RNA sequence: ACGUGCUGCCGGGCCCCUCUGGCGAACGCUGCCGGUGCGUUCGCGAUGUCGGCGGACUCA
Numbered sequence: 001a002c003g004u005g006c007u008g009c010c011g012g013g014c015c016c017c018u019c020u021g022g023c024g025a026a027c028g029c030u031g032c033c034g035g036u037g038c039g040u041u042c043g044c045g046a047u048g049u050c051g052g053c054g055g056a057c058u059c060a
Stems, first nucleotide, its partner, number of pairs: 006055007022044008